The family of this 60-nucleotide sequence is "Bacillus-plasmid RNA".

RNA sequence: GCAGUCAACGGUACCGGAGGCGGUCUGUGCCGAGGAUAAGGAGUUGACGGCUAAACCACU
Numbered sequence: 001g002c003a004g005u006c007a008a009c010g011g012u013a014c015c016g017g018a019g020g021c022g023g024u025c026u027g028u029g030c031c032g033a034g035g036a037u038a039a040g041g042a043g044u045u046g047a048c049g050g051c052u053a054a055a056c057c058a059c060u
Stems, first nucleotide, its partner, number of pairs: 001051002004048006
By type it is a small RNA.